Source information: Shown here is a 102-nucleotide RNA from Planifilum fulgidum, a member of the family "Purine riboswitch aptamer". Riboswitches are metabolite binding domains within certain messenger RNAs that serve as precision sensors for their corresponding targets. Its family is annotated with purine nucleobase biosynthetic process in the Gene Ontology. Taxonomically the source falls in Planifilum (Bacteria, Bacillota, Bacilli, Thermoactinomycetaceae).
RNA sequence: UGGGGGUGACGGGAUUUUUCUCAUAUAUGCUCGGGAAUAGGGCCCGAGUGUCUCUACCCGGAAACCGUAAAUUUCCGGACUAUGGGAAAAAUCCUCCUUUCG
Numbered sequence: 001u002g003g004g005g006g007u008g009a010c011g012g013g014a015u016u017u018u019u020c021u022c023a024u025a026u027a028u029g030c031u032c033g034g035g036a037a038u039a040g041g042g043c044c045c046g047a048g049u050g051u052c053u054c055u056a057c058c059c060g061g062a063a064a065c066c067g068u069a070a071a072u073u074u075c076c077g078g079a080c081u082a083u084g085g086g087a088a089a090a091a092u093c094c095u096c097c098u099u100u101c102g
Stems, first nucleotide, its partner, number of pairs: 018088008029049007058078007